RNA sequence: UGCUUAUCAAGAGUGGUGGAGGGAAAGGCCCUGUGAAACCACAGCAACCGGCCGUCAUGGCGCCAGGUGCUAAUUCCUGCCGUCAGGCAAAGAUGAGAGGGUGUGCU
Number, nucleotide and partner (000 for none) at each position: 001u000002g106003c105004u000005u103006a102007u101008c100009a000010a000011g000012a000013g042014u041015g040016g039017u038018g000019g000020a000021g031022g030023g029024a000025a000026a078027g077028g076029c023030c022031c021032u000033g000034u000035g000036a000037a000038a017039c016040c015041a014042c013043a071044g070045c069046a068047a000048c067049c066050g064051g063052c062053c000054g000055u000056c000057a000058u000059g000060g000061c000062g052063c051064c050065a000066g049067g048068u046069g045070c044071u043072a000073a000074u000075u099076c028077c027078u026079g000080c000081c095082g094083u093084c092085a000086g000087g000088c000089a000090a000091a000092g084093a083094u082095g081096a000097g000098a000099g075100g008101g007102u006103g005104u000105g003106c002107u000

Shown here is a 107-nucleotide RNA from Pelobacter propionicus, a member of the family "SAM riboswitch aptamer (S box leader)". Taxonomically the source falls in Pelobacter propionicus (Bacteria, Desulfuromonadia, Desulfuromonadales, Pelobacter). From the family's description: The SAM riboswitch is found upstream of a number of genes which code for proteins involved in methionine or cysteine biosynthesis in Gram-positive bacteria. Rfam's curators put it in the seed alignment. On this family, see Grundy and Henkin, Mol Microbiol 1998: "The S box regulon: a new global transcription termination control system for methionine and cysteine biosynthesis genes in gram-positive bacteria".